[Rfam]
RNA sequence: CCUGGAUCCGUGAUGUUAAUGGAAAACUGCGUUAUCUAUCUGUAAGUUCCUAUAUGGAGUUGAUGAUACCAUGAUUUCUGAGAUCCAAA
Numbered sequence: 001c002c003u004g005g006a007u008c009c010g011u012g013a014u015g016u017u018a019a020u021g022g023a024a025a026a027c028u029g030c031g032u033u034a035u036c037u038a039u040c041u042g043u044a045a046g047u048u049c050c051u052a053u054a055u056g057g058a059g060u061u062g063a064u065g066a067u068a069c070c071a072u073g074a075u076u077u078c079u080g081a082g083a084u085c086c087a088a089a
Base pairs, nucleotide, nucleotide: 003087004086005085006084007083
Dot-bracket structure: ..(((((...........................................................................)))))..